[Rfam]
Clostridiales-1 RNA: a 151-nucleotide RNA sequence from Lachnospira eligens. It is annotated as a small RNA. The match comes from Rfam's covariance-model search (84 bits). The family has 194 seed sequences and 1,172 matches in Rfam 15.1.
RNA sequence: UGUAAGCAGUGAGCCGUGCAAUCCAGAAUGUGCUUGCACAGAUUCUGGAUUAUACGGCGAGCGCCAAUAAUGAACAACGAAGGUCGAAGACCGGGAGUUGUGAAUUAUCAAGGCUCGGGAGUAGCGAAGCUACGGAGAGACUUGGCUUACA
Numbered sequence: 001u002g003u004a005a006g007c008a009g010u011g012a013g014c015c016g017u018g019c020a021a022u023c024c025a026g027a028a029u030g031u032g033c034u035u036g037c038a039c040a041g042a043u044u045c046u047g048g049a050u051u052a053u054a055c056g057g058c059g060a061g062c063g064c065c066a067a068u069a070a071u072g073a074a075c076a077a078c079g080a081a082g083g084u085c086g087a088a089g090a091c092c093g094g095g096a097g098u099u100g101u102g103a104a105u106u107a108u109c110a111a112g113g114c115u116c117g118g119g120a121g122u123a124g125c126g127a128a129g130c131u132a133c134g135g136a137g138a139g140a141c142u143u144g145g146c147u148u149a150c151a
Base pairs, nucleotide, nucleotide: 001151002150003149004148005147006146007145010061013058014057015056016055017054018053020051021050022049023048024047025046026045027044028043029040030039031038032037068107069106070105071104074101075100076099077098082092083091084090085089110143111142112141114139115138116137121133122132123131124130